RNA sequence: CUCGAAGUCUCGCUGGCAGGAGCGGGGGACCCAAGCACGGCGGACACCGGCAGUCGGUGUCCUUGGGGUGAAGCCGAUCGUUCGUUGAUCGGCCGGGCGCAUACUCCCGCCCGAACCCGACAGCUCACCCCGAAGGCGACCGGAGAGGUCCC
Numbered sequence: 001c002u003c004g005a006a007g008u009c010u011c012g013c014u015g016g017c018a019g020g021a022g023c024g025g026g027g028g029a030c031c032c033a034a035g036c037a038c039g040g041c042g043g044a045c046a047c048c049g050g051c052a053g054u055c056g057g058u059g060u061c062c063u064u065g066g067g068g069u070g071a072a073g074c075c076g077a078u079c080g081u082u083c084g085u086u087g088a089u090c091g092g093c094c095g096g097g098c099g100c101a102u103a104c105u106c107c108c109g110c111c112c113g114a115a116c117c118c119g120a121c122a123g124c125u126c127a128c129c130c131c132g133a134a135g136g137c138g139a140c141c142g143g144a145g146a147g148g149u150c151c152c
Stems, first nucleotide, its partner, number of pairs: 001020002023132005032065004066118003074092004095112004
Dot-bracket structure: ((................))..(((((....((((..........................))))(((.....((((...........))))..((((..........))))...))).........)))))....................
This 152-nucleotide RNA from Pengzhenrongella frigida belongs to the Rfam family "c-di-AMP riboswitch aptamer (ydaO/yuaA leader)". The source organism's lineage runs through Bacteria, Bacillati, Actinomycetes, Micrococcales and Pengzhenrongella.